[Rfam]
RNA sequence: CUUCGAAACGGCAAACCUGUCGAAAGGCAGGGACGCAAAGCUACAGGUCUACGGAAUUCCGGAUCGGAUUCCAUGGCGGCUGAGCCACCGAAA
Numbered sequence: 001c002u003u004c005g006a007a008a009c010g011g012c013a014a015a016c017c018u019g020u021c022g023a024a025a026g027g028c029a030g031g032g033a034c035g036c037a038a039a040g041c042u043a044c045a046g047g048u049c050u051a052c053g054g055a056a057u058u059c060c061g062g063a064u065c066g067g068a069u070u071c072c073a074u075g076g077c078g079g080c081u082g083a084g085c086c087a088c089c090g091a092a093a
Stems, first nucleotide, its partner, number of pairs: 003090001011036002016031006034079001040085003044082003047077003
c-di-GMP-I-GGC riboswitch aptamer: a 93-nucleotide sequence from Cohnella rhizosphaerae. The family has 40 seed sequences and 1,298 matches in Rfam 15.1.